[Rfam]
RNA sequence: UGCGUAUUUCGCGCAGGCGGAGCUCGACCGCCGGUAAGUGAUGUCGUUGAGUUCAUCGACGAGCACAAGUUAGAGCAUGGGGUCGAGCCGAUUUGCACGGUUUUGAAAUCAACGCAUGUGCAUGUCGCCCCG
Numbered sequence: 001u002g003c004g005u006a007u008u009u010c011g012c013g014c015a016g017g018c019g020g021a022g023c024u025c026g027a028c029c030g031c032c033g034g035u036a037a038g039u040g041a042u043g044u045c046g047u048u049g050a051g052u053u054c055a056u057c058g059a060c061g062a063g064c065a066c067a068a069g070u071u072a073g074a075g076c077a078u079g080g081g082g083u084c085g086a087g088c089c090g091a092u093u094u095g096c097a098c099g100g101u102u103u104u105g106a107a108a109u110c111a112a113c114g115c116a117u118g119u120g121c122a123u124g125u126c127g128c129c130c131c132g
Stems, first nucleotide, its partner, number of pairs: 016032005078132005089127002092124001094122005
RNA: ALIL pseudoknot